[Rfam]
Nucleotides: 201
Base pairs, nucleotide, nucleotide: 002067003066004065005064006063009059013054015052017050018049019048020047021046022045024044025043026042027041028040138195139194140193141192143190144189145188156177157176158175160173161172
Number, partner (000 for none) and nucleotide at each position: 001000u002067u003066g004065c005064a006063c007000u008000c009059u010000c011000a012000a013054u014000u015052g016000u017050u018049g019048g020047u021046a022045c023000c024044c025043a026042c027041u028040a029000a030000u031000u032000a033000a034000a035000u036000u037000c038000a039000a040028u041027a042026g043025u044024g045022g046021u047020a048019u049018c050017a051000u052015u053000u054013g055000a056000g057000c058000a059009a060000a061000a062000g063006g064005u065004g066003c067002a068000u069000a070000a071000a072000u073000a074000a075000a076000a077000u078000g079000c080000u081000g082000a083000u084000u085000u086000u087000g088000u089000u090000g091000u092000u093000u094000u095000u096000g097000a098000u099000u100000u101000c102000c103000a104000a105000a106000u107000c108000a109000a110000c111000a112000a113000a114000a115000a116000c117000a118000g119000c120000a121000g122000c123000g124000g125000c126000c127000a128000g129000a130000c131000a132000a133000c134000c135000g136000u137000a138195g139194a140193g141192a142000u143190g144189g145188a146000u147000c148000c149000a150000c151000a152000g153000a154000u155000g156177g157176g158175g159000u160173g161172g162000c163000u164000c165000a166000u167000u168000a169000u170000u171000g172161c173160u174000c175158c176157u177156u178000g179000u180000c181000u182000a183000c184000u185000a186000a187000u188145u189144c190143c191000c192141u193140c194139u195138c196000a197000c198000a199000u200000u201000u

The family of this 201-nucleotide sequence from Beta vulgaris is "small nucleolar RNA snoR143". Pairs were carried over by alignment from the consensus structure, which was predicted with RNAalifold. Gene Ontology terms of the family: RNA processing and nucleolus. The organism belongs to Beta vulgaris, within Eukaryota. Rfam 15.1 lists 660 matches to the family in 212 species.